Histidine operon leader: a 124-nucleotide RNA from Izhakiella capsodis. Rfam describes the family as follows. At least 6 amino acid operons are known to be regulated by attenuation. In each a leader sequence of 150-200 bp is found upstream of the first gene in the operon.
RNA sequence: UCAUCAUCACCAUCACCCUGGCUAGUCUUUCAGGCGAUGUGUGCUGGAAGACAUUCAGGAUCUUCCAGUGGCGAAAAGCGCGAUGAAAAGCCCCCGGAAGAUCAGCUUCCGGGGGCUUUUUUUA
Numbered sequence: 001u002c003a004u005c006a007u008c009a010c011c012a013u014c015a016c017c018c019u020g021g022c023u024a025g026u027c028u029u030u031c032a033g034g035c036g037a038u039g040u041g042u043g044c045u046g047g048a049a050g051a052c053a054u055u056c057a058g059g060a061u062c063u064u065c066c067a068g069u070g071g072c073g074a075a076a077a078g079c080g081c082g083a084u085g086a087a088a089a090g091c092c093c094c095c096g097g098a099a100g101a102u103c104a105g106c107u108u109c110c111g112g113g114g115g116c117u118u119u120u121u122u123u124a
Stems, first nucleotide, its partner, number of pairs: 008043003011039004017034005044068008085121016
The source organism's lineage runs through Bacteria, Pseudomonadati, Pseudomonadota, Enterobacterales and Izhakiella.